[Rfam]
RNA sequence: GCUAAUUGCAAUAUCCCGAUAGGAUUCACAAUACGUGAAGACGCCUUGUAACCAAAGAAUGUGGGGGAAAGAAAAUUAUG
Numbered sequence: 001g002c003u004a005a006u007u008g009c010a011a012u013a014u015c016c017c018g019a020u021a022g023g024a025u026u027c028a029c030a031a032u033a034c035g036u037g038a039a040g041a042c043g044c045c046u047u048g049u050a051a052c053c054a055a056a057g058a059a060u061g062u063g064g065g066g067g068a069a070a071g072a073a074a075a076u077u078a079u080g
Stems, first nucleotide, its partner, number of pairs: 014068004021046003025039005052064002
Shown here is an 80-nucleotide RNA from Trichococcus palustris, a member of the family "SAM-III riboswitch aptamer (SMK box)". The base pairs follow the family's consensus structure, which is taken from published work. Rfam links the family to the GO terms regulation of translational initiation and methionine adenosyltransferase activity.